[Rfam]
RNA sequence: UGCCCUACAGUUUACCGGCUCUCGUUUUCCGCCAGGAAUGUCUAUUGAAGACCCCUCUACGAAGGUCCGGAUGCCUACGCGAGCCGCCCCCCGAGCCUGUAUCAGGACCUCGCCGUGGGCCGCUGCUGGACAACUGCCGUGGGUUCAAAGCACCCAGCCCAGGGGUGCCCGGCCUACCAAGAGGGAACGCGUGUCGGAACUUAACCCUAAGUAAUCCUU
Numbered sequence: 001u002g003c004c005c006u007a008c009a010g011u012u013u014a015c016c017g018g019c020u021c022u023c024g025u026u027u028u029c030c031g032c033c034a035g036g037a038a039u040g041u042c043u044a045u046u047g048a049a050g051a052c053c054c055c056u057c058u059a060c061g062a063a064g065g066u067c068c069g070g071a072u073g074c075c076u077a078c079g080c081g082a083g084c085c086g087c088c089c090c091c092c093g094a095g096c097c098u099g100u101a102u103c104a105g106g107a108c109c110u111c112g113c114c115g116u117g118g119g120c121c122g123c124u125g126c127u128g129g130a131c132a133a134c135u136g137c138c139g140u141g142g143g144u145u146c147a148a149a150g151c152a153c154c155c156a157g158c159c160c161a162g163g164g165g166u167g168c169c170c171g172g173c174c175u176a177c178c179a180a181g182a183g184g185g186a187a188c189g190c191g192u193g194u195c196g197g198a199a200c201u202u203a204a205c206c207c208u209a210a211g212u213a214a215u216c217c218u219u
Base pairs, nucleotide, nucleotide: 009201010200011199015197016196017195018194

Rfam assigns this 219-nucleotide part of an RNA from Cordyceps fumosorosea to the family "Ascomycota telomerase RNA". It scores 227 bits against the family's covariance model. By type it is a non-coding RNA gene. The family is grouped with related families in Rfam's "Telomerase clan".